Source information
This 120-nucleotide RNA sequence from Rhizobium sp. BG4 belongs to the Rfam family "Alphaproteobacterial ar14". About the family: Smr14C2 was renamed NfeR1 (Nodule Formation Efficiency RNA) highly expressed in salt stress and during the symbiotic interaction on legume roots. A search with the family's covariance model found it, with a score of 104 bits. The literature on the family includes a 2012 paper in RNA Biol by del Val et al., "A survey of sRNA families in alpha-proteobacteria". Rfam classes the family as a small RNA. Pairs were carried over by alignment from the consensus structure.
RNA sequence: GCUUAUCGAAACGGCCACUCCUCCUCCCAGGCCGUUCGAUAUGGAUCGGCAACACUCCUCCUCCCAGUUGUCGAUCAAGUUUAUGAAGCCCGACGGAUCCUCCCCCGUCGGGCUUUUCAU
Numbered sequence: 001g002c003u004u005a006u007c008g009a010a011a012c013g014g015c016c017a018c019u020c021c022u023c024c025u026c027c028c029a030g031g032c033c034g035u036u037c038g039a040u041a042u043g044g045a046u047c048g049g050c051a052a053c054a055c056u057c058c059u060c061c062u063c064c065c066a067g068u069u070g071u072c073g074a075u076c077a078a079g080u081u082u083a084u085g086a087a088g089c090c091c092g093a094c095g096g097a098u099c100c101u102c103c104c105c106c107g108u109c110g111g112g113c114u115u116u117u118c119a120u
Base pairs, nucleotide, nucleotide: 007038008037009036011035012034013033014032015031016030044076045075046074047073048072049071050070051069052068053067086115087114088113089112090111091110092109093108094107095106096105